[Rfam]
RNA sequence: UCUAGAACUCGAGAUAUGGUUGAACACCGAACAGUGUCUGUGCUGCAGGACAGAUUCGAACUUCUCCAUUGUUGCUAUAAUUUGAACUUGAAAAUGGCUUUUUAAAUCUUAGAUUCCACGUGAAAGUUUUAGGCAUGUGUCUUAGGUUUCCAUC
Numbered sequence: 001u002c003u004a005g006a007a008c009u010c011g012a013g014a015u016a017u018g019g020u021u022g023a024a025c026a027c028c029g030a031a032c033a034g035u036g037u038c039u040g041u042g043c044u045g046c047a048g049g050a051c052a053g054a055u056u057c058g059a060a061c062u063u064c065u066c067c068a069u070u071g072u073u074g075c076u077a078u079a080a081u082u083u084g085a086a087c088u089u090g091a092a093a094a095u096g097g098c099u100u101u102u103u104a105a106a107u108c109u110u111a112g113a114u115u116c117c118a119c120g121u122g123a124a125a126g127u128u129u130u131a132g133g134c135a136u137g138u139g140u141c142u143u144a145g146g147u148u149u150c151c152a153u154c
Stems, first nucleotide, its partner, number of pairs: 003152001005150003008145002011143008019134001020132005026127002034121003040117001042115001044113001047110004053103002058098001061096001067090001071087003
RNA: MIR2912 microRNA precursor family